[Rfam]
Shown here is a 68-nucleotide RNA sequence from Geosporobacter ferrireducens, a member of the family "Fluoride riboswitch aptamer (crcB RNA motif)".
RNA sequence: AGAAAAAUCGGUGAUGGAGCUCACCUUUAAGCAUUGCAGGAUAUGCAAUUAAUGGCUCCUACUUGGCC
Numbered sequence: 001a002g003a004a005a006a007a008u009c010g011g012u013g014a015u016g017g018a019g020c021u022c023a024c025c026u027u028u029a030a031g032c033a034u035u036g037c038a039g040g041a042u043a044u045g046c047a048a049u050u051a052a053u054g055g056c057u058c059c060u061a062c063u064u065g066g067c068c
Stems, first nucleotide, its partner, number of pairs: 010025004016059006033049006

The match comes from Rfam's covariance-model search (44 bits). NCBI's taxonomy places the organism under Bacteria, Bacillota, Peptostreptococcales, Thermotaleaceae, Geosporobacter. Its family is annotated with positive regulation of gene expression and response to fluoride in the Gene Ontology.